[Rfam]
RNA sequence: UUGAGUCAGAAAGCCAAAAUGCAAAGCAUUUUUUUCAUGCUUUCUGACGACCUGCCGCCGAGCCAAAGGCGAGGGGGCUCUCAUUGUA
Numbered sequence: 001u002u003g004a005g006u007c008a009g010a011a012a013g014c015c016a017a018a019a020u021g022c023a024a025a026g027c028a029u030u031u032u033u034u035u036c037a038u039g040c041u042u043u044c045u046g047a048c049g050a051c052c053u054g055c056c057g058c059c060g061a062g063c064c065a066a067a068g069g070c071g072a073g074g075g076g077g078c079u080c081u082c083a084u085u086g087u088a
Stems, first nucleotide, its partner, number of pairs: 008045006016032006054078003058074002062070002
RNA: GA-cis RNA
Organism: Sporofaciens musculi